Background: The family of this 72-nucleotide sequence from Gulo gulo is "Small nucleolar RNA SNORD56". The literature on the family includes a 2002 paper in Mol Cell Biol by Galardi et al., "Purified box C/D snoRNPs are able to reproduce site-specific 2'-O-methylation of target RNA in vitro". Rfam 15.1 lists 796 matches to the family in 432 species. It is annotated as a C/D-box small nucleolar RNA. Lineage of the source: Eukaryota > Eumetazoa > Dipnotetrapodomorpha > Amniota > Gulo. The base pairs follow the family's consensus structure, which was predicted with PFOLD.
[Rfam]
RNA sequence: CUAUAAUGAUUGCAAUAAUUUUUUGUUAACAACAGUUCCUCUAGUGAGUGUUGAUACUUUGGGUCUGAGUGA
Numbered sequence: 001c002u003a004u005a006a007u008g009a010u011u012g013c014a015a016u017a018a019u020u021u022u023u024u025g026u027u028a029a030c031a032a033c034a035g036u037u038c039c040u041c042u043a044g045u046g047a048g049u050g051u052u053g054a055u056a057c058u059u060u061g062g063g064u065c066u067g068a069g070u071g072a
Base pairs, nucleotide, nucleotide: 002071003070004069008027009026010025